[Rfam]
Record summary
Shown here is a 100-nucleotide sequence from Desulfosporosinus sp. HMP52, a member of the family "Guanidine-I riboswitch aptamer". The pairing is the family consensus, mapped onto this sequence. Taxonomically the source falls in Desulfosporosinus (Bacteria, Bacillati, Bacillota, Desulfitobacteriaceae). Rfam's curators write: This family represents a conserved RNA structure found upstream of the ykkC and yxkD genes in Bacillus subtilis and related genes in other bacteria. The function of this family is unclear although it has been suggested that it may function to switch on efflux pumps and detoxification systems in response to harmful environmental molecules. A reference for the family is Barrick et al. (2004), "New RNA motifs suggest an expanded scope for riboswitches in bacterial genetic control", Proc Natl Acad Sci U S A. Its family is annotated with regulation of gene expression in the Gene Ontology.
Nucleotides: 100
Base pairs, nucleotide, nucleotide: 007054008053009052010051011050012049015044016043020041021039022037023034024033025032026031056073057072058071059070060069061068062067075095077098081093082092083091
Number, partner (000 for none) and nucleotide at each position: 001000a002000u003000u004000a005000a006000a007054g008053u009052u010051c011050u012049c013000u014000a015044g016043g017000g018000u019000u020041c021039c022037g023034c024033a025032g026031u027000u028000u029000c030000a031026a032025c033024u034023g035000g036000u037022c038000u039021g040000u041020g042000a043016c044015c045000a046000a047000g048000a049012g050011a051010g052009a053008a054007c055000u056073c057072a058071c059070a060069g061068u062067u063000u064000u065000a066000u067062a068061g069060c070059u071058g072057u073056g074000u075095c076000a077098c078000g079000g080000a081093a082092g083091g084000a085000c086000a087000a088000a089000a090000g091083c092082c093081u094000g095075g096000g097000a098077g099000a100000u